RNA: Group II catalytic intron D1-D4-1
RNA sequence: CUAGGAUCACCGCGAGGUGGUUUGAUGGACACACAGAAGUCAGCAGAGGCCGUAGUGUGCGCCAAGCAGCGCAUGAAUCGGGAGGGU
Numbered sequence: 001c002u003a004g005g006a007u008c009a010c011c012g013c014g015a016g017g018u019g020g021u022u023u024g025a026u027g028g029a030c031a032c033a034c035a036g037a038a039g040u041c042a043g044c045a046g047a048g049g050c051c052g053u054a055g056u057g058u059g060c061g062c063c064a065a066g067c068a069g070c071g072c073a074u075g076a077a078u079c080g081g082g083a084g085g086g087u
Stems, first nucleotide, its partner, number of pairs: 001027001004023008040047002049087003058080002